[Rfam]
The family of this 69-nucleotide sequence from Streptococcus sp. DD13 is "L17 ribosomal protein downstream element". Lineage of the source: Bacteria > Bacillota > Bacilli > Streptococcaceae > Streptococcus. By type it is a cis-regulatory element.

RNA sequence: UGAGUGUUAUGAUGAUGGAGCAUCUCGCUCUUAGUCUAGCUCUGGUCUACCGCCGAUUUUUUUCGGCGG
Numbered sequence: 001u002g003a004g005u006g007u008u009a010u011g012a013u014g015a016u017g018g019a020g021c022a023u024c025u026c027g028c029u030c031u032u033a034g035u036c037u038a039g040c041u042c043u044g045g046u047c048u049a050c051c052g053c054c055g056a057u058u059u060u061u062u063u064c065g066g067c068g069g
Stems, first nucleotide, its partner, number of pairs: 002042004011036003017031005050069007